RNA sequence: GUCUAAUUUGUCGGGCUGAGACAAA
Numbered sequence: 001g002u003c004u005a006a007u008u009u010g011u012c013g014g015g016c017u018g019a020g021a022c023a024a025a
Base pairs, nucleotide, nucleotide: 001016002015003014004013007025008024009023010022011021012020